[Rfam]
RNA sequence: CUAUGGCUUGAAUUAAAGUCAUGGCGGAAGGAG
Numbered sequence: 001c002u003a004u005g006g007c008u009u010g011a012a013u014u015a016a017a018g019u020c021a022u023g024g025c026g027g028a029a030g031g032a033g
Base pairs, nucleotide, nucleotide: 001024002023003022004021005020006019007018008017
A member of the RNA family "L31-Firmicutes ribosomal protein leader", 33 nucleotides long. A reference for the family is Eckert and Weinberg (2020), "Discovery of 20 novel ribosomal leader candidates in bacteria and archaea", BMC Microbiol. It is one of the family's seed sequences. The family's consensus secondary structure is taken from published work. Rfam classes the family as a cis-regulatory leader.